[Rfam]
RNA: Pseudomonas sRNA P14
Organism: Pseudomonas mangiferae
RNA sequence: ACGGACAUUUUUUGCGCAAGCCGUUGUCCUAGUUUUCGCAAGUAACGGGCAAAUCAGAAAAAAAAGCUUUCUGGUGCGUUCGGCGAGUUUACUUGCUACCGGUUACGGGUAGUAUGUAGGCCGCUAUUUCCCAGGCCCGGGAAA
Numbered sequence: 001a002c003g004g005a006c007a008u009u010u011u012u013u014g015c016g017c018a019a020g021c022c023g024u025u026g027u028c029c030u031a032g033u034u035u036u037c038g039c040a041a042g043u044a045a046c047g048g049g050c051a052a053a054u055c056a057g058a059a060a061a062a063a064a065a066g067c068u069u070u071c072u073g074g075u076g077c078g079u080u081c082g083g084c085g086a087g088u089u090u091a092c093u094u095g096c097u098a099c100c101g102g103u104u105a106c107g108g109g110u111a112g113u114a115u116g117u118a119g120g121c122c123g124c125u126a127u128u129u130c131c132c133a134g135g136c137c138c139g140g141g142a143a144a
Stems, first nucleotide, its partner, number of pairs: 038079002042075001046074001049072001051070003055066001083124003087121002090118003094114006101106001127144006